[Rfam]
RNA sequence: CAAAGAAUUCUCCUUUUGGGCUUUCUGGUUUCGUUUUAAGCCCAAAGGUGAAUUUUUUGGGA
Numbered sequence: 001c002a003a004a005g006a007a008u009u010c011u012c013c014u015u016u017u018g019g020g021c022u023u024u025c026u027g028g029u030u031u032c033g034u035u036u037u038a039a040g041c042c043c044a045a046a047g048g049u050g051a052a053u054u055u056u057u058u059g060g061g062a
Base pairs, nucleotide, nucleotide: 001059002058003057004056005055006054007053008052009051010050012048013047014046015045016044018043019042020041021040022039023038
mir-186 microRNA precursor family: a 62-nucleotide RNA from Tupaia belangeri.
The literature on the family includes a 2003 paper in RNA by Lagos-Quintana et al., "New microRNAs from mouse and human".
The base pairs follow the family's consensus structure, which was predicted with RNAalifold.
The source organism's lineage runs through Eukaryota, Eumetazoa, Boreoeutheria, Euarchontoglires and Tupaia belangeri.